[Rfam]
RNA sequence: ACGUACACUGAGUGGCCAGAUUAUUAUGAGUUCAGAAAUUAUAAUCAUCUGGCCACUCAGUGUAUAU
Dot-bracket structure: ...((((((((((((((.(((.((((((...........)))))).))).))))))))))))))...
Shown here is a 67-nucleotide RNA sequence from Pipistrellus kuhlii, a member of the family "mir-9256 microRNA precursor family". The family's consensus secondary structure was predicted with RNAalifold.